[Rfam]
RNA sequence: ACAAUGGAGAGUUUGAUCCUGGCUCAGGACAAACGCUGGCGGCGUGCCUAACACAUGCAAGUCCUACGAGAACCACGGAGCUUGCUCCGUGUAGUAAAGUGGCGAAUGGGUGAGUAACACGUAGAUAACCUACCUCGGGGAAGGGAAUAACCUUUCGAAAGAGGGGCUAAUGCCCUAUAAUGCAGCGGGCUCUUUGGAGCAUGUUGUUAAAGCUGGGGACCCUUCGGGGCCUAGCACCUUGAGAUGGGUCUGCGCUUGAUUAGUUUGUUGGUGAGGUAAUGGCUCACCAAGACGACGAUCAAUAACUGGUCUGAGAGGAUGUCCAGUCACACUGGGAUUGAGAUACGGCCCAGACUCCUAAGGGAGGCAGCAGUGAGGAAUUUUGCGCAAUGCUCGAAAGAGUGACGCAGCAACGCCGCGUGGUCGAUGAUGACUCUGAGGAGUGUAAAGACCUGUUGGGAGGGAAGAAAACCCCAUACAAAUAGUACUGGGAAUUGACGGUACCUCUCAUAGAAAGCUCCGGCUAACUUCGUGCCAGCAGCCGCGGUAAUACGAGGGGAGCAAGCGUUGUCCGGAUUUAUUG
Numbered sequence: 001a002c003a004a005u006g007g008a009g010a011g012u013u014u015g016a017u018c019c020u021g022g023c024u025c026a027g028g029a030c031a032a033a034c035g036c037u038g039g040c041g042g043c044g045u046g047c048c049u050a051a052c053a054c055a056u057g058c059a060a061g062u063c064c065u066a067c068g069a070g071a072a073c074c075a076c077g078g079a080g081c082u083u084g085c086u087c088c089g090u091g092u093a094g095u096a097a098a099g100u101g102g103c104g105a106a107u108g109g110g111u112g113a114g115u116a117a118c119a120c121g122u123a124g125a126u127a128a129c130c131u132a133c134c135u136c137g138g139g140g141a142a143g144g145g146a147a148u149a150a151c152c153u154u155u156c157g158a159a160a161g162a163g164g165g166g167c168u169a170a171u172g173c174c175c176u177a178u179a180a181u182g183c184a185g186c187g188g189g190c191u192c193u194u195u196g197g198a199g200c201a202u203g204u205u206g207u208u209a210a211a212g213c214u215g216g217g218g219a220c221c222c223u224u225c226g227g228g229g230c231c232u233a234g235c236a237c238c239u240u241g242a243g244a245u246g247g248g249u250c251u252g253c254g255c256u257u258g259a260u261u262a263g264u265u266u267g268u269u270g271g272u273g274a275g276g277u278a279a280u281g282g283c284u285c286a287c288c289a290a291g292a293c294g295a296c297g298a299u300c301a302a303u304a305a306c307u308g309g310u311c312u313g314a315g316a317g318g319a320u321g322u323c324c325a326g327u328c329a330c331a332c333u334g335g336g337a338u339u340g341a342g343a344u345a346c347g348g349c350c351c352a353g354a355c356u357c358c359u360a361a362g363g364g365a366g367g368c369a370g371c372a373g374u375g376a377g378g379a380a381u382u383u384u385g386c387g388c389a390a391u392g393c394u395c396g397a398a399a400g401a402g403u404g405a406c407g408c409a410g411c412a413a414c415g416c417c418g419c420g421u422g423g424u425c426g427a428u429g430a431u432g433a434c435u436c437u438g439a440g441g442a443g444u445g446u447a448a449a450g451a452c453c454u455g456u457u458g459g460g461a462g463g464g465a466a467g468a469a470a471a472c473c474c475c476a477u478a479c480a481a482a483u484a485g486u487a488c489u490g491g492g493a494a495u496u497g498a499c500g501g502u503a504c505c506u507c508u509c510a511u512a513g514a515a516a517g518c519u520c521c522g523g524c525u526a527a528c529u530u531c532g533u534g535c536c537a538g539c540a541g542c543c544g545c546g547g548u549a550a551u552a553c554g555a556g557g558g559g560a561g562c563a564a565g566c567g568u569u570g571u572c573c574g575g576a577u578u579u580a581u582u583g
Base pairs, nucleotide, nucleotide: 009025010024011023012022013021027573028572029571030570032569033568034567035566036565037564039419040418041417042416043415044414045412046411047377052375053374054373056372057371058370061103062102063101066100067099070095074091075090076089077088078087079086080085110330111329112328120254121253122252123251124250125249126248129247130246134243135242136241137240138239139238140237142176143175144174145173151166152165153164154163155162156161182207183206184205185204186203187202190199191198192197212235213234214233215232216231217230256302257301258300263293264292265291268290269289270288271287272286273285274284275283305327306326307325308324309320310319311318312317332353333352334351335350336349355366356365357364358363383409385408386407387406391404392403393402394401395400422453423452424451425450433444434443435442436441457514458509459508460507461506462505463504467499473492474491475490517562518561519560520559521558528557529556530555531554532553538545539544
Bacterial small subunit ribosomal RNA: a 583-nucleotide part of an RNA from Fidelibacterota bacterium MT.SAG.4.
Rfam links the family to the GO terms ribosome and structural constituent of ribosome.
The family has 99 seed sequences and 42,628 matches in Rfam 15.1.
The match comes from Rfam's covariance-model search (1576 bits).